Background:
Bacterial large subunit ribosomal RNA: a 268-nucleotide part of an RNA from Melioribacter roseus. Lineage of the source: Bacteria > Pseudomonadati > Melioribacteraceae > Melioribacter > Melioribacter roseus. It scores 2898 bits against the family's covariance model.

[Rfam]
RNA sequence: GGAUACUUGAGAAGAGUCGCUUCUAGUACGAGAGGACCGAAGCGAACGUUCCUCUAGUGUACCAGUUGUCACGCCAGUGGCAGCGCUGGGUAGCUAUGAACGGAUGUGAUAAGCACUGAAAGCAUCUAAGUGCGAAGCACACUUCAAGAUGAGGUAUCCCUUCCCGACGAAAGUCGGGUCUGAAGACUCCUCGGAGAUUACGAGGUUGAUAGGCUGCAGGUGUAAGUCCGGCAACGGAUUCAGCCGAGCAGUACUAAUAGGUCGUGCG
Numbered sequence: 001g002g003a004u005a006c007u008u009g010a011g012a013a014g015a016g017u018c019g020c021u022u023c024u025a026g027u028a029c030g031a032g033a034g035g036a037c038c039g040a041a042g043c044g045a046a047c048g049u050u051c052c053u054c055u056a057g058u059g060u061a062c063c064a065g066u067u068g069u070c071a072c073g074c075c076a077g078u079g080g081c082a083g084c085g086c087u088g089g090g091u092a093g094c095u096a097u098g099a100a101c102g103g104a105u106g107u108g109a110u111a112a113g114c115a116c117u118g119a120a121a122g123c124a125u126c127u128a129a130g131u132g133c134g135a136a137g138c139a140c141a142c143u144u145c146a147a148g149a150u151g152a153g154g155u156a157u158c159c160c161u162u163c164c165c166g167a168c169g170a171a172a173g174u175c176g177g178g179u180c181u182g183a184a185g186a187c188u189c190c191u192c193g194g195a196g197a198u199u200a201c202g203a204g205g206u207u208g209a210u211a212g213g214c215u216g217c218a219g220g221u222g223u224a225a226g227u228c229c230g231g232c233a234a235c236g237g238a239u240u241c242a243g244c245c246g247a248g249c250a251g252u253a254c255u256a257a258u259a260g261g262u263c264g265u266g267c268g
Stems, first nucleotide, its partner, number of pairs: 001159008011145004017045007047102005055096003062089005067082006106140003113133005162178003182265001185263004189205005210256003213252005219245002226239005
Dot-bracket structure: ((((((((..((((..(((((((...............))))))).(((((...(((....(((((((((((....))))))..)))))....))).)))))...(((....(((((...........)))))....))).))))......))))))))..(((...........)))...(..(((((((((.......)))))....((((((((.((.....(((((....)))))....))..))))).)))...)))).)...